This 71-nucleotide RNA sequence from Pseudolycoriella hygida belongs to the Rfam family "mir-1000 microRNA precursor family".
[Rfam]
RNA sequence: UACAAUUAUAUUGUCCUGUCACAGCAGUACUUUAUUCUGUGUUACUGUUGUUUCGGGGCAAAUACAUUGUU
Numbered sequence: 001u002a003c004a005a006u007u008a009u010a011u012u013g014u015c016c017u018g019u020c021a022c023a024g025c026a027g028u029a030c031u032u033u034a035u036u037c038u039g040u041g042u043u044a045c046u047g048u049u050g051u052u053u054c055g056g057g058g059c060a061a062a063u064a065c066a067u068u069g070u071u
Stems, first nucleotide, its partner, number of pairs: 003069004012060007022050008
NCBI's taxonomy places the organism under Eukaryota, Ecdysozoa, Arthropoda, Bibionomorpha, Pseudolycoriella.